[Rfam]
RNA sequence: CCCCCGAUGGGGCGAGAAGACCCUAUGGAGCUUCACUGCAGCCUGUCGUUGGGGUGGGGGAGGGAAUGCAUAGCGUAGGUAGGAGCAUUGAAGCGCGGUCUCCGGGCCGCGCGGAUGCGGCAAUGAAACACUACCCAUUUCCUCCUCUGCCCCUAACCUCCCCGUGGGGGACAGCGGCAGGUGGGCAGUUCGGCUGGGGCGGCACACCUCUGAAAAGAUAUCAGAGGUGCCCUAAGCUCGGCUCAGGUGGGUUAGAAACCCGCCGUGGAGGGUAAGGCCAAAAGCCGGGCUGACUGUACCCUCGAUUGCUCGGGGUGCAGGCGGGAAACCGGGGCUUAACGAACGCUCAUACCCCCUCCGGUGGGGGUUGGGCAUGUCGGAAAAGUUACCCUAGGAGUAACCGGCUCGUCGCGGGUGAGAGUUCCCAUCGACCCCGCGGUUUGGUACCCAGACGUCGUCUCUUCCCAUCCUGGGAGUGCAGCAGCUCCCAAGGGUGCGGCUGCCCGCCGAUCAAAGGGGAACGUGAGAUGGGUUCAGACCGUCGUGAGACAGGUCGGUCUCUACCUGUCGGGGGUGCU
Numbered sequence: 001c002c003c004c005c006g007a008u009g010g011g012g013c014g015a016g017a018a019g020a021c022c023c024u025a026u027g028g029a030g031c032u033u034c035a036c037u038g039c040a041g042c043c044u045g046u047c048g049u050u051g052g053g054g055u056g057g058g059g060g061a062g063g064g065a066a067u068g069c070a071u072a073g074c075g076u077a078g079g080u081a082g083g084a085g086c087a088u089u090g091a092a093g094c095g096c097g098g099u100c101u102c103c104g105g106g107c108c109g110c111g112c113g114g115a116u117g118c119g120g121c122a123a124u125g126a127a128a129c130a131c132u133a134c135c136c137a138u139u140u141c142c143u144c145c146u147c148u149g150c151c152c153c154u155a156a157c158c159u160c161c162c163c164g165u166g167g168g169g170g171a172c173a174g175c176g177g178c179a180g181g182u183g184g185g186c187a188g189u190u191c192g193g194c195u196g197g198g199g200c201g202g203c204a205c206a207c208c209u210c211u212g213a214a215a216a217g218a219u220a221u222c223a224g225a226g227g228u229g230c231c232c233u234a235a236g237c238u239c240g241g242c243u244c245a246g247g248u249g250g251g252u253u254a255g256a257a258a259c260c261c262g263c264c265g266u267g268g269a270g271g272g273u274a275a276g277g278c279c280a281a282a283a284g285c286c287g288g289g290c291u292g293a294c295u296g297u298a299c300c301c302u303c304g305a306u307u308g309c310u311c312g313g314g315g316u317g318c319a320g321g322c323g324g325g326a327a328a329c330c331g332g333g334g335c336u337u338a339a340c341g342a343a344c345g346c347u348c349a350u351a352c353c354c355c356c357u358c359c360g361g362u363g364g365g366g367g368u369u370g371g372g373c374a375u376g377u378c379g380g381a382a383a384a385g386u387u388a389c390c391c392u393a394g395g396a397g398u399a400a401c402c403g404g405c406u407c408g409u410c411g412c413g414g415g416u417g418a419g420a421g422u423u424c425c426c427a428u429c430g431a432c433c434c435c436g437c438g439g440u441u442u443g444g445u446a447c448c449c450a451g452a453c454g455u456c457g458u459c460u461c462u463u464c465c466c467a468u469c470c471u472g473g474g475a476g477u478g479c480a481g482c483a484g485c486u487c488c489c490a491a492g493g494g495u496g497c498g499g500c501u502g503c504c505c506g507c508c509g510a511u512c513a514a515a516g517g518g519g520a521a522c523g524u525g526a527g528a529u530g531g532g533u534u535c536a537g538a539c540c541g542u543c544g545u546g547a548g549a550c551a552g553g554u555c556g557g558u559c560u561c562u563a564c565c566u567g568u569c570g571g572g573g574g575u576g577c578u
Stems, first nucleotide, its partner, number of pairs: 001574008010566003014561002022395004027391002029387005035189004042181007051153018078135005085118003096109005157169004192205001193203003206228006231334002237289006243269002246264006270279002294320009322331001324329001345373005351368001353367004404445003408442001409439007419429002456531001457529004461523001462520005469494002473488005497509004537555004541550003
Source information:
A member of the RNA family "Archaeal large subunit ribosomal RNA" from Thermocladium modestius, 578 nucleotides of a longer RNA. The source organism's lineage runs through Archaea, Thermoproteati, Thermoprotei, Thermoproteales and Thermocladium. Gene Ontology terms of the family: structural constituent of ribosome and ribosome.